[Rfam]
RNA: c-di-AMP riboswitch aptamer (ydaO/yuaA leader)
Organism: Streptomyces sp. Ru87
RNA sequence: GAGGCGCAAGCGCCGCAGGCGGGAGCGGGGGACCCAAGGUAAGCGCCGGAGGCCCGGGGACGGGACGGCCGGCUAGGGGUGAAGCCCAGUGCGGGAGCACUCGGCAGGGCAGCUCACAGCCCGAACCCGACAGCUCACCUCGCAGGCGUCGGUGAGAGGACAA
Numbered sequence: 001g002a003g004g005c006g007c008a009a010g011c012g013c014c015g016c017a018g019g020c021g022g023g024a025g026c027g028g029g030g031g032a033c034c035c036a037a038g039g040u041a042a043g044c045g046c047c048g049g050a051g052g053c054c055c056g057g058g059g060a061c062g063g064g065a066c067g068g069c070c071g072g073c074u075a076g077g078g079g080u081g082a083a084g085c086c087c088a089g090u091g092c093g094g095g096a097g098c099a100c101u102c103g104g105c106a107g108g109g110c111a112g113c114u115c116a117c118a119g120c121c122c123g124a125a126c127c128c129g130a131c132a133g134c135u136c137a138c139c140u141c142g143c144a145g146g147c148g149u150c151g152g153u154g155a156g157a158g159g160a161c162a163a
Stems, first nucleotide, its partner, number of pairs: 011148004025143006035076001077128003085104002088101005107122004
Dot-bracket structure: ..........((((..........((((((....(........................................)(((.....((.(((((....))))).))..((((........))))...))).........)))))).))))...............